[Rfam]
RNA sequence: GGUCAUGAGCGCCAGCGCGAAGCCCCGGCUCGCUGGCCGGCAACCCUCCCCUCGCGGCGGGGUGCCCCGGGUGACGACCUGGCCGCACGGUUCGGUGCGGCAAGCGCGGGGA
Numbered sequence: 001g002g003u004c005a006u007g008a009g010c011g012c013c014a015g016c017g018c019g020a021a022g023c024c025c026c027g028g029c030u031c032g033c034u035g036g037c038c039g040g041c042a043a044c045c046c047u048c049c050c051c052u053c054g055c056g057g058c059g060g061g062g063u064g065c066c067c068c069g070g071g072u073g074a075c076g077a078c079c080u081g082g083c084c085g086c087a088c089g090g091u092u093c094g095g096u097g098c099g100g101c102a103a104g105c106g107c108g109g110g111g112a
Base pairs, nucleotide, nucleotide: 001079002078003077004076009038011037012036013035014034015033016032021030022029039066040065041064044062045061046060048057049056082101083100084099085098086097087096088095
Shown here is a 112-nucleotide sequence from Xylanimonas allomyrinae, a member of the family "SAM (S-adenosyl methionine) riboswitch aptamer". The source organism's lineage runs through Bacteria, Bacillati, Actinomycetota, Micrococcales and Xylanimonas. SAM-IV is a mRNA element that regulates gene expression via direct sensing of S-adenosylmethionine (SAM or AdoMet). SAM-IV riboswitches share conserved nucleotide positions with the previously described SAM-I riboswitches sequence analysis and molecular recognition experiments suggest that SAM-I and SAM-IV riboswitches share similar ligand binding sites, but have different scaffolds. A search with the family's covariance model found it, with a score of 99 bits.